[Rfam]
RNA sequence: UGAGCGUAGAAGAGGAAAUAGAGGGCCUAAGAGCAGUGGGAAUGGGAACAUGGAGGAAGGCCUAGAUUUCAUUUUGAGUCUUCCUGAUGCCUCCCAUUCCUAUCGUUCUUAGGACCUCAUUCCUCUUCCUUUUAGCA
Numbered sequence: 001u002g003a004g005c006g007u008a009g010a011a012g013a014g015g016a017a018a019u020a021g022a023g024g025g026c027c028u029a030a031g032a033g034c035a036g037u038g039g040g041a042a043u044g045g046g047a048a049c050a051u052g053g054a055g056g057a058a059g060g061c062c063u064a065g066a067u068u069u070c071a072u073u074u075u076g077a078g079u080c081u082u083c084c085u086g087a088u089g090c091c092u093c094c095c096a097u098u099c100c101u102a103u104c105g106u107u108c109u110u111a112g113g114a115c116c117u118c119a120u121u122c123c124u125c126u127u128c129c130u131u132u133u134a135g136c137a
Base pairs, nucleotide, nucleotide: 009128010127011126012125013124015122016121017120021118022117023116026113027112028111029110030109031108032107033106034105037102038101039100040099041098042097043096044095045094046093047092049089050088051087053085055084056083057082058081059080060079061078

MIR2118 microRNA precursor family: a 137-nucleotide RNA sequence from Setaria italica. For this family Rfam cites "Characterization and expression profiles of miRNAs in rice seeds" (Xue et al., Nucleic Acids Res, 2009). The source organism's lineage runs through Eukaryota, Streptophytina, Embryophyta, Magnoliopsida and Setaria.